[Rfam]
Background: The record is a 129-nucleotide RNA sequence from Nesterenkonia alkaliphila, which matches "SAM (S-adenosyl methionine) riboswitch aptamer" in Rfam. Rfam links the family to the GO terms S-adenosylmethionine metabolic process and regulation of gene expression. Lineage of the source: Bacteria > Actinomycetota > Actinomycetes > Micrococcales > Nesterenkonia. Pairs were carried over by alignment from the consensus structure, which is taken from published work. Rfam's curators write: SAM-IV is a mRNA element that regulates gene expression via direct sensing of S-adenosylmethionine (SAM or AdoMet).

RNA sequence: CGUCACGAGUUCCGGUCCGGCGCGCAAGCGCCGACAGCCCUGGCUGGCCGGACAGCAACCCUCUCUCACAGUGGGGUGCUCCAGGUGAGGACAAGGCGUCCGCCGCCCGGCGGGCAGCAAGUGUGAACU
Numbered sequence: 001c002g003u004c005a006c007g008a009g010u011u012c013c014g015g016u017c018c019g020g021c022g023c024g025c026a027a028g029c030g031c032c033g034a035c036a037g038c039c040c041u042g043g044c045u046g047g048c049c050g051g052a053c054a055g056c057a058a059c060c061c062u063c064u065c066u067c068a069c070a071g072u073g074g075g076g077u078g079c080u081c082c083a084g085g086u087g088a089g090g091a092c093a094a095g096g097c098g099u100c101c102g103c104c105g106c107c108c109g110g111c112g113g114g115c116a117g118c119a120a121g122u123g124u125g126a127a128c129u
Stems, first nucleotide, its partner, number of pairs: 002092003009053001011052006022044001054080003059076003063071002096118002098115007